A member of the RNA family "Aar sRNA" from Acinetobacter sp. CIP 102637, 190 nucleotides long. The match comes from Rfam's covariance-model search (138 bits). It is annotated as a small RNA.
[Rfam]
RNA sequence: AUUAACAUCUAUUAACAGUAGUUAACAUGAAUACCUAUGAACUUGGUUAAGUUUUUUUAUAUGAUGACUAUGUAGAUUAGAAAAAACUAAUCUUAUGAUAUUUCUCCUUUUCAUCGGAACUGUUUUACAGAUUCGUAGUUCUACGCAAUGAUCACCCCAAUCAUUGCGUUUUUUUUAUGCCUAUUUCUCG
Dot-bracket structure: .............(((..(((((..(((........))).....))))).)))...........(((....((((.((((..(.......)..).)).................((((.((((...)))).)))).......((((((((((.......)))))))))).........).))))...)))